[Rfam]
RNA sequence: GGGUGCCGCUCCAGCUCGGGACGGCAGGAAUCGCGCAGGUCGGGCCGCCUCG
Numbered sequence: 001g002g003g004u005g006c007c008g009c010u011c012c013a014g015c016u017c018g019g020g021a022c023g024g025c026a027g028g029a030a031u032c033g034c035g036c037a038g039g040u041c042g043g044g045c046c047g048c049c050u051c052g
Base pairs, nucleotide, nucleotide: 005025006024007023008022010020011019012018034052035051037050038049039048040047
This 52-nucleotide RNA from Ramlibacter montanisoli belongs to the Rfam family "nhaA-I RNA". Taxonomically the source falls in Ramlibacter (Bacteria, Pseudomonadati, Pseudomonadota, Burkholderiales). Acidobacteria, Alphaproteobacteria, Betaproteobacteria and Gammaproteobacteria, Verrucomicrobia, cand. division NC10. By type it is a riboswitch. The match comes from Rfam's covariance-model search (45 bits).